[Rfam]
RNA sequence: CUCAUUUUUGGCCCUCUCUUCCUGGUUCUUCCCGGAGUCGGGAAAAGCUGGGUUGAAAGGGCAAAAAACAAAACAC
Dot-bracket structure: .............((.((..(((((...((((((....))))))...)))))..)).)).................